[Rfam]
A member of the RNA family "mir-8799 microRNA precursor family" from Nyctereutes procyonoides, 90 nucleotides long. Gene Ontology terms of the family: RISC complex and miRNA-mediated post-transcriptional gene silencing. Clan: mir-8791 microRNA precursor clan. The family has 7 seed sequences and 20,638 matches in Rfam 15.1. Taxonomically the source falls in Nyctereutes (Eukaryota, Amniota, Boreoeutheria, Carnivora). It scores 100 bits against the family's covariance model.
RNA sequence: GGAGGGAGGCCGGAUCCUGGGCUGUGUCCCAGCGCCCUGUGCUCCCAGGCCUGCGCUGAUGGAUUCGCGCUCCUGGCCGCACAGCCCCCU
Dot-bracket structure: ((.(((..(.(((..((.(((.(((((((((((((...(.(((....)))).))))))..)))..)))).))).)))))..)..))).))